[Rfam]
Nucleotides: 084
Stems, first nucleotide, its partner, number of pairs: 002083004007078001015070008024061002029056001031054003037050002
Number, partner (000 for none) and nucleotide at each position: 001000g002083u003082g004081g005080c006000c007078g008000c009000u010000u011000u012000g013000u014000g015070g016069u017068c018067a019066u020065a021064u022063g023000u024061g025060u026000a027000c028000u029056g030000c031054c032053a033052u034000u035000c036000a037050c038049u039000u040000g041000a042000a043000a044000c045000u046000u047000u048000a049038g050037g051000a052033g053032u054031g055000a056029c057000a058000u059000c060025a061024u062000a063022u064021g065020u066019a067018u068017g069016g070015c071000g072000g073000c074000u075000a076000a077000a078007c079000u080005g081004c082003u083002g084000c
The record is an 84-nucleotide RNA from Rhinolophus ferrumequinum, which matches "mir-489 microRNA precursor family" in Rfam. Its family is annotated with miRNA-mediated post-transcriptional gene silencing and RISC complex in the Gene Ontology. A reference for the family is Bentwich et al. (2005), "Identification of hundreds of conserved and nonconserved human microRNAs", Nat Genet. The source organism's lineage runs through Eukaryota, Amniota, Theria, Boreoeutheria and Rhinolophus. Pairs were carried over by alignment from the consensus structure, which was predicted with RNAalifold.